[Rfam]
RNA sequence: UCGCGGGACCGGGCCCCUCUGGCAAUGUGAUCAGAAGAUUACUUGCGAUGUCGGACCGCAUCG
Numbered sequence: 001u002c003g004c005g006g007g008a009c010c011g012g013g014c015c016c017c018u019c020u021g022g023c024a025a026u027g028u029g030a031u032c033a034g035a036a037g038a039u040u041a042c043u044u045g046c047g048a049u050g051u052c053g054g055a056c057c058g059c060a061u062c063g
Stems, first nucleotide, its partner, number of pairs: 006057002009054004022046004027042004
Rfam assigns this 63-nucleotide sequence from Paracoccus liaowanqingii to the family "terC RNA". The base pairs follow the family's consensus structure, which is taken from published work. Rfam classes the family as a cis-regulatory element.